[Rfam]
RNA sequence: GCCGAGCCCUGUAACGCGGGCUUGUGACCCGAGUUUUGGGGGCAUGAAAGUGAUGGAACAUUGACUCAGCUCCGAAGGGUUGGGUUUGAUGUGGCUAAUCUCUGGCCUGCCCGUUCCAAGCUGAGAGUUGGCUCGAGUGGCUCAAGCGAAGGCUCGAGCCUCACGAGUCCUAUAGAGGACGGCACUGCGUCAGGCUGGUUUCACAGAGCAGCGAUCACAUCCCGCUCCUGGCAGUGGAAGGAUAACAGGUCGAUGCCACUUGGAUCCGCAUGACCCGAUGGGCCGGUCCAAUUGGACCAUCACUUUU
Numbered sequence: 001g002c003c004g005a006g007c008c009c010u011g012u013a014a015c016g017c018g019g020g021c022u023u024g025u026g027a028c029c030c031g032a033g034u035u036u037u038g039g040g041g042g043c044a045u046g047a048a049a050g051u052g053a054u055g056g057a058a059c060a061u062u063g064a065c066u067c068a069g070c071u072c073c074g075a076a077g078g079g080u081u082g083g084g085u086u087u088g089a090u091g092u093g094g095c096u097a098a099u100c101u102c103u104g105g106c107c108u109g110c111c112c113g114u115u116c117c118a119a120g121c122u123g124a125g126a127g128u129u130g131g132c133u134c135g136a137g138u139g140g141c142u143c144a145a146g147c148g149a150a151g152g153c154u155c156g157a158g159c160c161u162c163a164c165g166a167g168u169c170c171u172a173u174a175g176a177g178g179a180c181g182g183c184a185c186u187g188c189g190u191c192a193g194g195c196u197g198g199u200u201u202c203a204c205a206g207a208g209c210a211g212c213g214a215u216c217a218c219a220u221c222c223c224g225c226u227c228c229u230g231g232c233a234g235u236g237g238a239a240g241g242a243u244a245a246c247a248g249g250u251c252g253a254u255g256c257c258a259c260u261u262g263g264a265u266c267c268g269c270a271u272g273a274c275c276c277g278a279u280g281g282g283c284c285g286g287u288c289c290a291a292u293u294g295g296a297c298c299a300u301c302a303c304u305u306u307u
Stems, first nucleotide, its partner, number of pairs: 001043003004023006028040004046307011059294002061291003066286002069283002072281003077276005082267008091259004096255002103252007111241002114239005120232004125227004130169006137162001139160005145154003170175001177222003181218001188213003195206003
RNA: Plant signal recognition particle RNA
Organism: Jatropha curcas